[Rfam]
RNA sequence: CACACAUCAGGAACAGCGAUUCCUAUGUCUA
Numbered sequence: 001c002a003c004a005c006a007u008c009a010g011g012a013a014c015a016g017c018g019a020u021u022c023c024u025a026u027g028u029c030u031a
Base pairs, nucleotide, nucleotide: 002030004028005027006026007025009024010023011022012021013020014018
Rfam assigns this 31-nucleotide RNA sequence from Octodon degus to the family "Iron response element II". Rfam classes the family as a cis-regulatory element. IRE, TFRC, SLC40A1, SDHB, SLC11A2, CDC42BPA, ACO2, ALAS2_H.SAPIENS, CDC14A, EPAS1, ALAS2, qoxD, Hao1, NDUFS1, transferrin, Aconitate. Taxonomically the source falls in Octodon (Eukaryota, Dipnotetrapodomorpha, Mammalia, Rodentia). A reference for the family is Koeller et al. (1989), "A cytosolic protein binds to structural elements within the iron regulatory region of the transferrin receptor mRNA", Proc Natl Acad Sci U S A.